[Rfam]
A member of the RNA family "skipping-rope RNA", 79 nucleotides long. It is annotated as a small RNA.
RNA sequence: GGACAUUGAGGUCGGAAAUGGCUCCCGACACUCCCGAAAGGGAACCUGAGAUGCAGGAUACGCCGCCCUGCCGAUGUCC
Numbered sequence: 001g002g003a004c005a006u007u008g009a010g011g012u013c014g015g016a017a018a019u020g021g022c023u024c025c026c027g028a029c030a031c032u033c034c035c036g037a038a039a040g041g042g043a044a045c046c047u048g049a050g051a052u053g054c055a056g057g058a059u060a061c062g063c064c065g066c067c068c069u070g071c072c073g074a075u076g077u078c079c
Base pairs, nucleotide, nucleotide: 001079002078003077004076005075006074007073008072011029012028013027014026015025019065020064021063022062031048032042033041034040053071054070055069056068057067